This 92-nucleotide RNA sequence from Brevirhabdus pacifica belongs to the Rfam family "Rhodo-rpoB RNA". The match comes from Rfam's covariance-model search (85 bits). Lineage of the source: Bacteria > Pseudomonadati > Pseudomonadota > Paracoccaceae > Brevirhabdus.
Nucleotides: 092
Stems, first nucleotide, its partner, number of pairs: 002042004010031008064092005069086005
Number, partner (000 for none) and nucleotide at each position: 001000g002042g003041g004040u005039c006000g007000g008000g009000a010031g011030g012029u013028c014027g015026c016025c017024g018000g019000u020000g021000g022000g023000a024017c025016g026015g027014u028013g029012g030011c031010c032000a033000u034000g035000u036000a037000u038000u039005g040004a041003c042002c043000g044000a045000a046000c047000c048000c049000c050000c051000u052000g053000u054000c055000u056000c057000a058000a059000c060000a061000g062000g063000g064092c065091g066090c067089a068088u069086c070085g071084c072083c073082g074000u075000g076000g077000c078000c079000c080000g081000a082073c083072g084071g085070u086069g087000g088068a089067u090066g091065c092064g